[Rfam]
RNA sequence: GGUGAUAAAGUGCGGCGUAGAAUAGAUGCAGCGGACCCGGGGGCAGUACCCGGCGACUCCACCACACCCCCUCUCUCCAGAGGGGGUAUGACGGGGUCGAACUAGGAUCGACGUGUAUUGAAAGGCGCUGUUUUUGCCCAGGCUGAGUAACCUGUUCAAGGCUCAUAACCACAAGUGCAAACGAUAACCAUGCACUCGCGAUUGCUGCGUAA
Numbered sequence: 001g002g003u004g005a006u007a008a009a010g011u012g013c014g015g016c017g018u019a020g021a022a023u024a025g026a027u028g029c030a031g032c033g034g035a036c037c038c039g040g041g042g043g044c045a046g047u048a049c050c051c052g053g054c055g056a057c058u059c060c061a062c063c064a065c066a067c068c069c070c071c072u073c074u075c076u077c078c079a080g081a082g083g084g085g086g087u088a089u090g091a092c093g094g095g096g097u098c099g100a101a102c103u104a105g106g107a108u109c110g111a112c113g114u115g116u117a118u119u120g121a122a123a124g125g126c127g128c129u130g131u132u133u134u135u136g137c138c139c140a141g142g143c144u145g146a147g148u149a150a151c152c153u154g155u156u157c158a159a160g161g162c163u164c165a166u167a168a169c170c171a172c173a174a175g176u177g178c179a180a181a182c183g184a185u186a187a188c189c190a191u192g193c194a195c196u197c198g199c200g201a202u203u204g205c206u207g208c209g210u211a212a
Stems, first nucleotide, its partner, number of pairs: 001138005015128004027117003031114003037053005054099007139154004